[Rfam]
RNA sequence: UUGAUAAGUCAGCCUAAUCCUCAAUCAUAACAACUCCAGAGGAACGGGGAAACCGAUCCAGGGGCGCAUCUCUAUAGUAUCAGUAGAGAAGGACAUCUCUCAGUCCUAGCCCGUCAGCUAACCUCGUCGGCAUUGAGAGGAGACUGA
Numbered sequence: 001u002u003g004a005u006a007a008g009u010c011a012g013c014c015u016a017a018u019c020c021u022c023a024a025u026c027a028u029a030a031c032a033a034c035u036c037c038a039g040a041g042g043a044a045c046g047g048g049g050a051a052a053c054c055g056a057u058c059c060a061g062g063g064g065c066g067c068a069u070c071u072c073u074a075u076a077g078u079a080u081c082a083g084u085a086g087a088g089a090a091g092g093a094c095a096u097c098u099c100u101c102a103g104u105c106c107u108a109g110c111c112c113g114u115c116a117g118c119u120a121a122c123c124u125c126g127u128c129g130g131c132a133u134u135g136a137g138a139g140g141a142g143a144c145u146g147a
Base pairs, nucleotide, nucleotide: 012131013130014129018043019042020041021040022039044127045126046125047124048123049122054061062112063111064110070088071087072086073085091106092105093104094103
A member of the RNA family "c-di-AMP riboswitch aptamer (ydaO/yuaA leader)" from Gloeothece citriformis, 147 nucleotides long. Rfam describes the family as follows. This family represents a conserved RNA structure found upstream of the ydaO and yuaA genes in Bacillus subtilis and related genes in other bacteria. A reference for the family is Barrick et al. (2004), "New RNA motifs suggest an expanded scope for riboswitches in bacterial genetic control", Proc Natl Acad Sci U S A. The organism belongs to Gloeothece citriformis, within Bacteria.